RNA sequence: GGCUGGUCUGAAGGUAGUGAGUUAUCUCACUUGAUUGUUCACAGUCACAGAUUGACCUCCUUGUUCUACUACUUUCCCCCCUCCUCACUACUGCACUUGACUAGUAUAA
Numbered sequence: 001g002g003c004u005g006g007u008c009u010g011a012a013g014g015u016a017g018u019g020a021g022u023u024a025u026c027u028c029a030c031u032u033g034a035u036u037g038u039u040c041a042c043a044g045u046c047a048c049a050g051a052u053u054g055a056c057c058u059c060c061u062u063g064u065u066c067u068a069c070u071a072c073u074u075u076c077c078c079c080c081c082u083c084c085u086c087a088c089u090a091c092u093g094c095a096c097u098u099g100a101c102u103a104g105u106a107u108a109a
Stems, first nucleotide, its partner, number of pairs: 002105007010098002014094002016089006039071001043067002

Shown here is a 109-nucleotide RNA from Prolemur simus, a member of the family "Y RNA". For this family Rfam cites "Ro ribonucleoproteins contribute to the resistance of Deinococcus radiodurans to ultraviolet irradiation" (Chen et al., Genes Dev, 2000). The base pairs follow the family's consensus structure, which is taken from published work.